[Rfam]
RNA sequence: CGGAGGACUGAGAAGGUGAGGCAGUCCUGUACUGUGCUGCCUUCCACUGGUUAAGACCUCCAAGAGCAAAGGCCUACCAAGGCAGAGGAUGUCCCUCUUGCCACCCUUGGAGGGGCAGUGCUGUGCUGGCCGACAUUUG
Numbered sequence: 001c002g003g004a005g006g007a008c009u010g011a012g013a014a015g016g017u018g019a020g021g022c023a024g025u026c027c028u029g030u031a032c033u034g035u036g037c038u039g040c041c042u043u044c045c046a047c048u049g050g051u052u053a054a055g056a057c058c059u060c061c062a063a064g065a066g067c068a069a070a071g072g073c074c075u076a077c078c079a080a081g082g083c084a085g086a087g088g089a090u091g092u093c094c095c096u097c098u099u100g101c102c103a104c105c106c107u108u109g110g111a112g113g114g115g116c117a118g119u120g121c122u123g124u125g126c127u128g129g130c131c132g133a134c135a136u137u138u139g
Base pairs, nucleotide, nucleotide: 002061003060004059005058006057015048016047017046018045019042020041021040022039023038024037025036081131082130083129086127087126089124090123091122098118099117100116101115102114104113105112
Description
The family of this 139-nucleotide RNA from Hipposideros armiger is "Small nucleolar RNA SNORA47". The match comes from Rfam's covariance-model search (150 bits). Lineage of the source: Eukaryota > Amniota > Mammalia > Chiroptera > Hipposideros. Rfam classes the family as an H/ACA-box small nucleolar RNA. The literature on the family includes a 2001 paper in EMBO J by Huttenhofer et al., "RNomics: an experimental approach that identifies 201 candidates for novel, small, non-messenger RNAs in mouse". The family has 20 seed sequences and 733 matches in Rfam 15.1.